A member of the RNA family "mir-8834 microRNA precursor family" from Vulpes vulpes, 109 nucleotides long. Pairs were carried over by alignment from the consensus structure, which was predicted with RNAalifold. Its family is annotated with miRNA-mediated post-transcriptional gene silencing and RISC complex in the Gene Ontology.
[Rfam]
RNA sequence: AGGAGGAACAGCAACAGUGGUGGCGGCCAGCUCUCCAGCCCUGGAGUCAGCUCCUGCAGUAACUGCUGCAGCUCCCCAUCCUCAGGGGCCUGGAUGCUCCCAGGGCGGG
Numbered sequence: 001a002g003g004a005g006g007a008a009c010a011g012c013a014a015c016a017g018u019g020g021u022g023g024c025g026g027c028c029a030g031c032u033c034u035c036c037a038g039c040c041c042u043g044g045a046g047u048c049a050g051c052u053c054c055u056g057c058a059g060u061a062a063c064u065g066c067u068g069c070a071g072c073u074c075c076c077c078a079u080c081c082u083c084a085g086g087g088g089c090c091u092g093g094a095u096g097c098u099c100c101c102a103g104g105g106c107g108g109g
Stems, first nucleotide, its partner, number of pairs: 002100004007095001009092003012088001019080005025075002029073004033068001036065002041059003